RNA: EcpR1
RNA sequence: AUACCCCAUGAUGCUCAGGUCCGCCGCAUCUCCUGGGUCGUGGGGUCGGUCGACUGGUUGCACAACAAAAGCGGUUCCUCGUGCCGUGCUGCAGCUGGUCGACCCCCAU
Dot-bracket structure: ..((((((((...((((((............)))))).)))))))).(((((((((((...................................))))))))))).....